The family of this 87-nucleotide sequence from Cronobacter sakazakii is "TrxA 5' UTR thermometer". The organism belongs to Cronobacter sakazakii, within Bacteria. Gene Ontology terms of the family: regulation of translation and response to temperature stimulus. Involved in protection against oxidative stress.
[Rfam]
RNA sequence: AACCUUAUGUUGGUUAAUGCUACACCAACAUGACAGGCCUAAUCUUUGGAGUAAAACAUGAGCGAUAAAAUUAUUCACCUGACUGAC
Numbered sequence: 001a002a003c004c005u006u007a008u009g010u011u012g013g014u015u016a017a018u019g020c021u022a023c024a025c026c027a028a029c030a031u032g033a034c035a036g037g038c039c040u041a042a043u044c045u046u047u048g049g050a051g052u053a054a055a056a057c058a059u060g061a062g063c064g065a066u067a068a069a070a071u072u073a074u075u076c077a078c079c080u081g082a083c084u085g086a087c
Base pairs, nucleotide, nucleotide: 008067009066010065011064012063014061015060016059021053022052023051025049026048027047030046032044033043071086072085073084075082076081